This 221-nucleotide RNA from Urbifossiella limnaea belongs to the Rfam family "Group II catalytic intron D1-D4-6". It scores 180 bits against the family's covariance model.
RNA sequence: AGAGUCGCACGGGGAAGGCCCAGCCAGCCACCCCGACCCCGAGUCAUGCGUGGACGGCCGCAAGGCCGUCGGCGAAGCGUUGACAGGGGCACACGCGGGUCAGCCAUCGAGCUGCGAAAUCAGGUCCUCCGGGGUGCCGACGCCGUUAGCUGAGGCGGAAGGCCACACCGACGGCGACGUCACAGGCGAGCCGCUGUCGGACCCCGCGCAGUCGGAGACCC
Numbered sequence: 001a002g003a004g005u006c007g008c009a010c011g012g013g014g015a016a017g018g019c020c021c022a023g024c025c026a027g028c029c030a031c032c033c034c035g036a037c038c039c040c041g042a043g044u045c046a047u048g049c050g051u052g053g054a055c056g057g058c059c060g061c062a063a064g065g066c067c068g069u070c071g072g073c074g075a076a077g078c079g080u081u082g083a084c085a086g087g088g089g090c091a092c093a094c095g096c097g098g099g100u101c102a103g104c105c106a107u108c109g110a111g112c113u114g115c116g117a118a119a120u121c122a123g124g125u126c127c128u129c130c131g132g133g134g135u136g137c138c139g140a141c142g143c144c145g146u147u148a149g150c151u152g153a154g155g156c157g158g159a160a161g162g163c164c165a166c167a168c169c170g171a172c173g174g175c176g177a178c179g180u181c182a183c184a185g186g187c188g189a190g191c192c193g194c195u196g197u198c199g200g201a202c203c204c205c206g207c208g209c210a211g212u213c214g215g216a217g218a219c220c221c
Stems, first nucleotide, its partner, number of pairs: 010035005017029003023187002037089004043084004047079002049074003053070007108215001109213001111212006130206006136163003141157004168200009178190001
Lineage of the source: Bacteria > Planctomycetota > Gemmatales > Gemmataceae > Urbifossiella. From the family's description: Group II introns are found in rRNA, tRNA and mRNA of organelles in fungi, plants and protists, and also in mRNA in bacteria.